[Rfam]
RNA sequence: AUGGGGUCUUGCUACGUUGUCCAGGCUGAUCUCAAACUCCUGGCCUGGACAACAUAGCAAGUAAUCCU
Dot-bracket structure: .......(((((((....(((((((......(((......))))))))))....))))))).......
RNA: mir-1285 microRNA precursor family